Notes
mir-202 microRNA precursor family: a 76-nucleotide RNA sequence from Semnornis frantzii. Gene Ontology terms of the family: RISC complex and miRNA-mediated post-transcriptional gene silencing. A reference for the family is Bentwich et al. (2005), "Identification of hundreds of conserved and nonconserved human microRNAs", Nat Genet. NCBI's taxonomy places the organism under Eukaryota, Bilateria, Euteleostomi, Saurischia, Semnornis.
RNA sequence: UUGCUCCUUUUUCCUAUGCUUAUAUUUCUUUGGUAAUUAAAUCUAAAGUGAUAUAAGGCAUGGGAAAAUGGGGCAG
Numbered sequence: 001u002u003g004c005u006c007c008u009u010u011u012u013c014c015u016a017u018g019c020u021u022a023u024a025u026u027u028c029u030u031u032g033g034u035a036a037u038u039a040a041a042u043c044u045a046a047a048g049u050g051a052u053a054u055a056a057g058g059c060a061u062g063g064g065a066a067a068a069u070g071g072g073g074c075a076g
Base pairs, nucleotide, nucleotide: 010067011066012065013064014063015062016061017060018059019058021055022054023053025051026050028048029047030046031045032044
The match comes from Rfam's covariance-model search (81 bits).